This 52-nucleotide sequence from Mycobacterium sp. UM_Kg17 belongs to the Rfam family "L31-Actinobacteria ribosomal protein leader".
RNA sequence: CAGGUUCCGGUUCACGUUCGCCUCCACUUCGAAGGCGGGCGACCCGGCGGCC
Numbered sequence: 001c002a003g004g005u006u007c008c009g010g011u012u013c014a015c016g017u018u019c020g021c022c023u024c025c026a027c028u029u030c031g032a033a034g035g036c037g038g039g040c041g042a043c044c045c046g047g048c049g050g051c052c
Stems, first nucleotide, its partner, number of pairs: 003052003007047004015041009
It is one of the family's seed sequences. NCBI's taxonomy places the organism under Bacteria, Actinomycetota, Actinomycetes, Mycobacteriaceae, Mycobacterium. The family is grouped with related families in Rfam's "Ribosomal Protein L31 Leader clan".